Bacterial large subunit ribosomal RNA: a 337-nucleotide part of an RNA from Aquirufa nivalisilvae.
The family is grouped with related families in Rfam's "LSU clan".
On this family, see Yusupov et al., Science 2001: "Crystal structure of the ribosome at 5.5 A resolution".
A search with the family's covariance model found it, with a score of 2685 bits.
Nucleotides: 337
Base pairs, nucleotide, nucleotide: 001337002336003335004334009332010331011330012329013328014327015326016325018323019322020321036058037057038056039055044049060077061076062075063074064073065072066071078082090316091315092314093313094312095311096310097308098307101115102114103113119152120151121150122149123148124147125146126143130139131138132137156303157302158301159300161233162232163231166230167229168226169225170224171223172222175221176220177219181215182214186210187209188208189207190206193202194201234252235251236250237249238248239247253257263290273289274288275287276286277285278284
Number, partner (000 for none) and nucleotide at each position: 001337c002336g003335a004334g005000u006000g007000a008000a009332u010331c011330a012329c013328g014327g015326c016325u017000a018323a019322g020321g021000a022000a023000c024000u025000c026000g027000g028000c029000a030000a031000a032000u033000u034000a035000a036058c037057c038056c039055u040000g041000u042000a043000a044049c045000u046000u047000c048000g049044g050000g051000a052000u053000a054000a055039a056038g057037g058036g059000a060077g061076c062075c063074u064073c065072g066071a067000g068000u069000a070000a071066u072065c073064g074063a075062g076061g077060c078082c079000g080000c081000a082078g083000a084000g085000a086000a087000a088000u089000g090316g091315c092314c093313c094312a095311g096310g097308c098307g099000a100000c101115u102114g103113u104000u105000u106000a107000a108000c109000a110000a111000a112000a113103a114102c115101a116000c117000a118000u119152g120151g121150c122149u123148u124147u125146g126143c127000a128000a129000a130139a131138u132137c133000g134000a135000a136000a137132g138131a139130u140000g141000a142000c143126g144000u145000a146125u147124a148123a149122g150121g151120c152119c153000u154000g155000a156303c157302a158301c159300c160000u161233g162232c163231c164000c165000g166230g167229u168226g169225c170224u171223g172222g173000a174000a175221g176220g177219u178000u179000a180000a181215g182214g183000g184000g185000g186210g187209a188208u189207g190206u191000u192000a193202g194201c195000u196000g197000c198000a199000a200000g201194g202193c203000g204000a205000a206190g207189c208188a209187u210186u211000g212000a213000a214182c215181u216000g217000a218000a219177g220176c221175c222172c223171c224170a225169g226168u227000a228000a229167a230166c231163g232162g233161c234252g235251g236250c237249c238248g239247u240000a241000a242000c243000u244000a245000u246000a247239a248238c249237g250236g251235u252234c253257c254000u255000a256000a257253g258000g259000u260000a261000g262000c263290g264000a265000a266000a267000u268000u269000c270000c271000u272000u273289g274288u275287c276286g277285g278284g279000u280000a281000a282000g283000u284278u285277c286276c287275g288274a289273c290263c291000u292000g293000c294000a295000c296000g297000a298000a299000u300159g301158g302157u303156g304000u305000a306000a307098c308097g309000a310096u311095c312094u313093g314092g315091g316090c317000a318000c319000u320000g321020u322019c323018u324000c325016a326015g327014c328013c329012g330011u331010g332009a333000g334004c335003u336002c337001g